Rfam assigns this 448-nucleotide RNA sequence from Hymenobacter swuensis to the family "Bacterial RNase P class A". Ribonuclease P (RNase P) is a ubiquitous endoribonuclease, found in archaea, bacteria and eukarya as well as chloroplasts and mitochondria. It scores 245 bits against the family's covariance model. Rfam links the family to the GO terms tRNA processing, ribonuclease P activity and dimeric ribonuclease P complex. The family's RNA type in Rfam is ribozyme.

[Rfam]
RNA sequence: GUGAUGGGUCGCCCCACCGCGGCGCUGCAAGGCGACGAGGAAAGUCCGGGCAACGCAGAGCACCCUGCUUCCUAACGGGAAGGACUGGGCGGCGUAAAGCUUCUCAGGACAGCCAGUGCCACAGAAAAGUACCGCCAGGCGGUGAAGUUGUGAAAGGUGAAGUUGUGAAUUUCACAAUCUCACCACUUCUCAAUUUCACCUUUGGUAAGGGUGAAAAGGUGCGGUAAGAGCGCACCAGCGGCUGGGUGACUAGUCCGGCUGGGUAAACCUCAGGGGUUGAAAGACCAAAUAAGCCAGUACGUGGCCCUUCGGGGCUGCACCGGGCGGCUCGUCCGGCGCUGGCGGGUAGGUUGAUGGAGCCCGCGCGCAAGUUCGGGCCUAGAUAAAUGGUGGGGCCGCUUGCUUUCGGGCAGGCGGACAAAACCCGGCUUACAGACUCAUCACCGUC
Numbered sequence: 001g002u003g004a005u006g007g008g009u010c011g012c013c014c015c016a017c018c019g020c021g022g023c024g025c026u027g028c029a030a031g032g033c034g035a036c037g038a039g040g041a042a043a044g045u046c047c048g049g050g051c052a053a054c055g056c057a058g059a060g061c062a063c064c065c066u067g068c069u070u071c072c073u074a075a076c077g078g079g080a081a082g083g084a085c086u087g088g089g090c091g092g093c094g095u096a097a098a099g100c101u102u103c104u105c106a107g108g109a110c111a112g113c114c115a116g117u118g119c120c121a122c123a124g125a126a127a128a129g130u131a132c133c134g135c136c137a138g139g140c141g142g143u144g145a146a147g148u149u150g151u152g153a154a155a156g157g158u159g160a161a162g163u164u165g166u167g168a169a170u171u172u173c174a175c176a177a178u179c180u181c182a183c184c185a186c187u188u189c190u191c192a193a194u195u196u197c198a199c200c201u202u203u204g205g206u207a208a209g210g211g212u213g214a215a216a217a218g219g220u221g222c223g224g225u226a227a228g229a230g231c232g233c234a235c236c237a238g239c240g241g242c243u244g245g246g247u248g249a250c251u252a253g254u255c256c257g258g259c260u261g262g263g264u265a266a267a268c269c270u271c272a273g274g275g276g277u278u279g280a281a282a283g284a285c286c287a288a289a290u291a292a293g294c295c296a297g298u299a300c301g302u303g304g305c306c307c308u309u310c311g312g313g314g315c316u317g318c319a320c321c322g323g324g325c326g327g328c329u330c331g332u333c334c335g336g337c338g339c340u341g342g343c344g345g346g347u348a349g350g351u352u353g354a355u356g357g358a359g360c361c362c363g364c365g366c367g368c369a370a371g372u373u374c375g376g377g378c379c380u381a382g383a384u385a386a387a388u389g390g391u392g393g394g395g396c397c398g399c400u401u402g403c404u405u406u407c408g409g410g411c412a413g414g415c416g417g418a419c420a421a422a423a424c425c426c427g428g429c430u431u432a433c434a435g436a437c438u439c440a441u442c443a444c445c446g447u448c
Base pairs, nucleotide, nucleotide: 001444002443003442004441005440006439007438008437009436010435011433012395013394014393015392016391017390018389020037021036023034024033025032026031042431043430044429046428047427048426049425050424051279052278053277054276058330059329060328061327063275064274065273066272067271068082069081070080071079072078083110085107086106087105088104089103111270112269116268117267118264119263120262132210133209134206135205136204137203138202139201141199218236219235220234221233222232223231238259239257240256241255242253243252244251245250283352284351285350286349293343294342295341296340297339298338321335322334323333324332325331359378360377361376362375363374365372366371